[Rfam]
RNA sequence: GUCGGUCUUCGGUAGUGGUUUUCCGGACCCGGUCCGGGGGACUUCGAUCGACGACCGCC
Number, nucleotide and partner (000 for none) at each position: 001g059002u000003c057004g056005g055006u054007c053008u000009u051010c050011g049012g048013u047014a000015g000016u000017g043018g042019u041020u040021u039022u038023c037024c036025g035026g034027a033028c032029c000030c000031g000032g028033u027034c026035c025036g024037g023038g022039g021040g020041a019042c018043u017044u000045c000046g000047a013048u012049c011050g010051a009052c000053g007054a006055c005056c004057g003058c000059c001

A member of the RNA family "Actino-pnp RNA" from Rhodococcus sp. WMMA185, 59 nucleotides long. It is annotated as a cis-regulatory element. Pairs were carried over by alignment from the consensus structure, which is taken from published work. NCBI's taxonomy places the organism under Bacteria, Actinomycetota, Actinomycetes, Nocardiaceae, Rhodococcus.